This 132-nucleotide RNA from Onychostoma macrolepis belongs to the Rfam family "U4atac minor spliceosomal RNA". Rfam describes the family as follows. U4atac is an essential component of the minor U12-type spliceosome complex which is required for removal of the rarer class of eukaryotic introns (AT-AC, U12-type). Rfam classes the family as a spliceosomal small nuclear RNA. Its family is annotated with spliceosomal tri-snRNP complex assembly, U4atac snRNP and mRNA 5'-splice site recognition in the Gene Ontology.
RNA sequence: ACCAUCUUUGUCUGGGGGUGGACUGGGCUGUUCAAUGAACGUAUAGUGAGAUCAGCCCUGCUAACACCGAAACCAACACAACUCGCAUCACCUGAACUCAUUUGUUUAGGCUAUGGUGCAAUUUUUGGAACC
Numbered sequence: 001a002c003c004a005u006c007u008u009u010g011u012c013u014g015g016g017g018g019u020g021g022a023c024u025g026g027g028c029u030g031u032u033c034a035a036u037g038a039a040c041g042u043a044u045a046g047u048g049a050g051a052u053c054a055g056c057c058c059u060g061c062u063a064a065c066a067c068c069g070a071a072a073c074c075a076a077c078a079c080a081a082c083u084c085g086c087a088u089c090a091c092c093u094g095a096a097c098u099c100a101u102u103u104g105u106u107u108a109g110g111c112u113a114u115g116g117u118g119c120a121a122u123u124u125u126u127g128g129a130a131c132c
Stems, first nucleotide, its partner, number of pairs: 006018004023060001025058001027056004032051002039047002085119006091110006
Its Rfam clan is "U4 clan".